[Rfam]
RNA sequence: CUGAUAUUUUCUUUGGUUAUCUAGCUGUAUGAGUAUUGUUUAAUAACAUCAUAAAGCUAGGUUACCGGAGUUAAAACCAG
Dot-bracket structure: (((.(.((..(((((((.((((((((.(((((................))))).)))))))).)))))))..)).).)))
RNA: mir-9/mir-79 microRNA precursor family
Organism: Tribolium castaneum